RNA sequence: ACACGUGCUCCGGGGUCGGUGAAAGUCCGAGCCGGCGGUGACAGUCCGCGACCCACGCGCCAGACGAGCGAUCGUCGACCGGGUGGUUGACCUGGUGGAACUCCAGGACCGACGGUGAAAGUCCGGAUGGGAGGAAGUACGUGG
Dot-bracket structure: ..((((((((......(((.......))).[[((((((.....[[))))...((((..........................))))....(((((.......)))))]])).(((.....]]))).......)..)))))))..

The record is a 144-nucleotide RNA sequence from Cellulomonas persica, which matches "FMN riboswitch aptamer (RFN element)" in Rfam. A search with the family's covariance model found it, with a score of 86 bits.